This 46-nucleotide RNA sequence from [Actinobacillus] rossii belongs to the Rfam family "PreQ1 (pre queuosine) riboswitch aptamer". For this family Rfam cites "Identification of four genes necessary for biosynthesis of the modified nucleoside queuosine" (Reader et al., J Biol Chem, 2004). The match comes from Rfam's covariance-model search (48 bits). From the family's description: This family is a bacterial riboswitch that binds to the metabolite preQ1, an intermediate in the biosynthesis of the modified nucleoside queuosine from GTP. One example of this riboswitch is located in the leader of the Bacillus subtilis ykvJKLM (queCDEF) operon which encodes four genes necessary for queuosine production. PreQ1 binding to the riboswitch aptamer is thought to induce premature transcription termination within the leader to down-regulate expression of these genes.
[Rfam]
RNA sequence: UAACUUGUGGUUCGCAAUCUAUCCCACACAAAAAAACUAGGAAAAU
Numbered sequence: 001u002a003a004c005u006u007g008u009g010g011u012u013c014g015c016a017a018u019c020u021a022u023c024c025c026a027c028a029c030a031a032a033a034a035a036a037c038u039a040g041g042a043a044a045a046u
Base pairs, nucleotide, nucleotide: 006028007027008026009025010024016038